A member of the RNA family "Bacterial large subunit ribosomal RNA" from Chloracidobacterium thermophilum, 386 nucleotides of a longer RNA. Pairs were carried over by alignment from the consensus structure, which is taken from published work. The family has 102 seed sequences and 51,934 matches in Rfam 15.1. Lineage of the source: Bacteria > Blastocatellia > Chloracidobacteriaceae > Chloracidobacterium > Chloracidobacterium thermophilum.

RNA sequence: GAUAACGACUGUGAGAAUCAGUCGCGCCGCAAGCCUAAGGUUUCCUGAGUAAAGUUCGUCUGCUCAGGGUUAGCCGAUCCCUAAGGAAAAGCCGAAAGGCGUAUUCGAUGGGUGUCCGGUGAAUAUUCCGGAGCUGAAAGCAAGCGUUUGAGCAUGGGGUGACGCAUUCUCAAGGGAUAGACUACUGAUGGAAUAGUAGUUGAUCCGCUCUGGCUUGAUCCGCAGGCAAAUCCACGGAUCACGAGAGUUGGGGCGGGGACGAAAGUCCUGCUUCGGCAGGACGCAAGUAUCUGGAGAGGGUGCCAAGAAAAACCUCGUUUGCGAGCUUGUUUUUCAAUCGUACCGCAAACCGACACAGGUAGGCGAGGAGAGUAUCCUAAGGCGCA
Numbered sequence: 001g002a003u004a005a006c007g008a009c010u011g012u013g014a015g016a017a018u019c020a021g022u023c024g025c026g027c028c029g030c031a032a033g034c035c036u037a038a039g040g041u042u043u044c045c046u047g048a049g050u051a052a053a054g055u056u057c058g059u060c061u062g063c064u065c066a067g068g069g070u071u072a073g074c075c076g077a078u079c080c081c082u083a084a085g086g087a088a089a090a091g092c093c094g095a096a097a098g099g100c101g102u103a104u105u106c107g108a109u110g111g112g113u114g115u116c117c118g119g120u121g122a123a124u125a126u127u128c129c130g131g132a133g134c135u136g137a138a139a140g141c142a143a144g145c146g147u148u149u150g151a152g153c154a155u156g157g158g159g160u161g162a163c164g165c166a167u168u169c170u171c172a173a174g175g176g177a178u179a180g181a182c183u184a185c186u187g188a189u190g191g192a193a194u195a196g197u198a199g200u201u202g203a204u205c206c207g208c209u210c211u212g213g214c215u216u217g218a219u220c221c222g223c224a225g226g227c228a229a230a231u232c233c234a235c236g237g238a239u240c241a242c243g244a245g246a247g248u249u250g251g252g253g254c255g256g257g258g259a260c261g262a263a264a265g266u267c268c269u270g271c272u273u274c275g276g277c278a279g280g281a282c283g284c285a286a287g288u289a290u291c292u293g294g295a296g297a298g299g300g301u302g303c304c305a306a307g308a309a310a311a312a313c314c315u316c317g318u319u320u321g322c323g324a325g326c327u328u329g330u331u332u333u334u335c336a337a338u339c340g341u342a343c344c345g346c347a348a349a350c351c352g353a354c355a356c357a358g359g360u361a362g363g364c365g366a367g368g369a370g371a372g373u374a375u376c377c378u379a380a381g382g383c384g385c386a
Stems, first nucleotide, its partner, number of pairs: 006024006025384004033364004039344002044068006053061002075340004080111002085106003089102001091100003115132005135336006141329005152320001155317006164303004169298003175292005180201006202260001206255004213248003217240006225233002267280005350359002366378004